Iron response element II: a 31-nucleotide sequence from Notechis scutatus. It is annotated as a cis-regulatory element. The family's consensus secondary structure is taken from published work. A reference for the family is Koeller et al. (1989), "A cytosolic protein binds to structural elements within the iron regulatory region of the transferrin receptor mRNA", Proc Natl Acad Sci U S A. From the family's description: IRE, TFRC, SLC40A1, SDHB, SLC11A2, CDC42BPA, ACO2, ALAS2_H.SAPIENS, CDC14A, EPAS1, ALAS2, qoxD, Hao1, NDUFS1, transferrin, Aconitate. The family has 30 seed sequences and 5,197 matches in Rfam 15.1.
[Rfam]
Nucleotides: 031
Base pairs, nucleotide, nucleotide: 001031002030003029004028005027006026007025009024010023011022012021013020014018
Number, partner (000 for none) and nucleotide at each position: 001031a002030a003029u004028u005027u006026a007025u008000c009024a010023g011022c012021g013020a014018c015000a016000g017000g018014g019000u020013u021012c022011g023010c024009u025007a026006u027005g028004a029003a030002u031001u